RNA sequence: UGAUCCAUUGAAUAUUACUAAUCAGGGAAAUCACAGUUGAGGGAAUACGAAAUGAGAUUCCUCUCACUUCUUUCCACUUUCUCAACUGUGUUUCUUUGAUUAGAAAAAUUUGUUGGAUCA
Numbered sequence: 001u002g003a004u005c006c007a008u009u010g011a012a013u014a015u016u017a018c019u020a021a022u023c024a025g026g027g028a029a030a031u032c033a034c035a036g037u038u039g040a041g042g043g044a045a046u047a048c049g050a051a052a053u054g055a056g057a058u059u060c061c062u063c064u065c066a067c068u069u070c071u072u073u074c075c076a077c078u079u080u081c082u083c084a085a086c087u088g089u090g091u092u093u094c095u096u097u098g099a100u101u102a103g104a105a106a107a108a109u110u111u112g113u114u115g116g117a118u119c120a
Stems, first nucleotide, its partner, number of pairs: 001120007011110003016105001018103013032090006039083005
RNA: MIR1509 microRNA precursor family
Organism: Trifolium subterraneum